[Rfam]
RNA sequence: UCCUUAUCCAGAGAGGUGGAGGGACUGGCCCGACGAAGCCCGGCAACCGGCAGCAAUGCUGCAAAGGUGCCAAUUCCAACAGAAGCUUAAAGCUUCUGACAGAUAAGGA
Numbered sequence: 001u002c003c004u005u006a007u008c009c010a011g012a013g014a015g016g017u018g019g020a021g022g023g024a025c026u027g028g029c030c031c032g033a034c035g036a037a038g039c040c041c042g043g044c045a046a047c048c049g050g051c052a053g054c055a056a057u058g059c060u061g062c063a064a065a066g067g068u069g070c071c072a073a074u075u076c077c078a079a080c081a082g083a084a085g086c087u088u089a090a091a092g093c094u095u096c097u098g099a100c101a102g103a104u105a106a107g108g109a
Stems, first nucleotide, its partner, number of pairs: 001109008013041001015040003021031003026078003042071004047067002050062003075101001080098006
Description:
Rfam assigns this 109-nucleotide sequence from Natranaerobius trueperi to the family "SAM riboswitch aptamer (S box leader)". NCBI's taxonomy places the organism under Bacteria, Bacillota, Natranaerobiales, Natranaerobiaceae, Natranaerobius. Rfam links the family to the GO term regulation of gene expression.